This 79-nucleotide sequence from Drosophila simulans belongs to the Rfam family "mir-968 microRNA precursor family". Its family is annotated with miRNA-mediated post-transcriptional gene silencing and RISC complex in the Gene Ontology. The base pairs follow the family's consensus structure, which was predicted with RNAalifold. NCBI's taxonomy places the organism under Eukaryota, Dicondylia, Panorpida, Drosophilinae, Sophophora.
RNA sequence: AGCUUCCUUAAGUAGUAUCCAUUAAAGGGUUGUUCUCAACAUGCAAAUCAACCGUUUGAUGUACUACUUUAGGAAUCUA
Numbered sequence: 001a002g003c004u005u006c007c008u009u010a011a012g013u014a015g016u017a018u019c020c021a022u023u024a025a026a027g028g029g030u031u032g033u034u035c036u037c038a039a040c041a042u043g044c045a046a047a048u049c050a051a052c053c054g055u056u057u058g059a060u061g062u063a064c065u066a067c068u069u070u071a072g073g074a075a076u077c078u079a
Base pairs, nucleotide, nucleotide: 004075005074006073007072008071010069011068012067013066014065015064016063017062020061021060022059023058024057025056026055028053029052030051031050032049